Record summary
The record is an 82-nucleotide RNA sequence from Cupriavidus pinatubonensis, which matches "SAH (S-adenosyl-L-homocysteine) riboswitch aptamer" in Rfam. The family has 52 seed sequences and 1,354 matches in Rfam 15.1. NCBI's taxonomy places the organism under Bacteria, Pseudomonadati, Burkholderiales, Cupriavidus, Cupriavidus pinatubonensis. On this family, see Wang et al., Mol Cell 2008: "Riboswitches that sense S-adenosylhomocysteine and activate genes involved in coenzyme recycling". The base pairs follow the family's consensus structure, which is taken from published work.
RNA sequence: CACUCCGAGGAGCGUUGCAACGGAUCGUGGCGUAACAUGCCCUCCGCCAGGCUCGGACUGUCUUCAACGGCGCUCGCUGAUC
Numbered sequence: 001c002a003c004u005c006c007g008a009g010g011a012g013c014g015u016u017g018c019a020a021c022g023g024a025u026c027g028u029g030g031c032g033u034a035a036c037a038u039g040c041c042c043u044c045c046g047c048c049a050g051g052c053u054c055g056g057a058c059u060g061u062c063u064u065c066a067a068c069g070g071c072g073c074u075c076g077c078u079g080a081u082c
Stems, first nucleotide, its partner, number of pairs: 002059001004057005021046004